[Rfam]
RNA sequence: UCUGGGGACAGCCUCCCAUGAUGACCUUUCUCUCUCUGACGGCUGUGGUGGUGAUGAUCAUCAAACCAAAGCCUCUAAGAAGUUGACUGAAGAGGCUGUUGCUCU
Numbered sequence: 001u002c003u004g005g006g007g008a009c010a011g012c013c014u015c016c017c018a019u020g021a022u023g024a025c026c027u028u029u030c031u032c033u034c035u036c037u038g039a040c041g042g043c044u045g046u047g048g049u050g051g052u053g054a055u056g057a058u059c060a061u062c063a064a065a066c067c068a069a070a071g072c073c074u075c076u077a078a079g080a081a082g083u084u085g086a087c088u089g090a091a092g093a094g095g096c097u098g099u100u101g102c103u104c105u
Base pairs, nucleotide, nucleotide: 007100008099009098010097011096012095013094014093015092
Dot-bracket structure: ......(((((((((............................................................................))))))))).....
Rfam assigns this 105-nucleotide RNA from Falco tinnunculus to the family "Small nucleolar RNA SNORD125". Clan: SNORD61 clan.